RNA sequence: GCGAUGAGCUAAUUUGCAUAAGACGAGAUUGACGCGCCUUUUUGGCAAUGCACUAUGUGGAGUGCUGUCUCUCGCCGCAAUACGCAUAAAGACGCCCAUUCGGGCGUC
Numbered sequence: 001g002c003g004a005u006g007a008g009c010u011a012a013u014u015u016g017c018a019u020a021a022g023a024c025g026a027g028a029u030u031g032a033c034g035c036g037c038c039u040u041u042u043u044g045g046c047a048a049u050g051c052a053c054u055a056u057g058u059g060g061a062g063u064g065c066u067g068u069c070u071c072u073c074g075c076c077g078c079a080a081u082a083c084g085c086a087u088a089a090a091g092a093c094g095c096c097c098a099u100u101c102g103g104g105c106g107u108c
Stems, first nucleotide, its partner, number of pairs: 014080004024074005031069003036046002050065001052063003091108007
RNA: BsrF
Organism: Halalkalibacter okhensis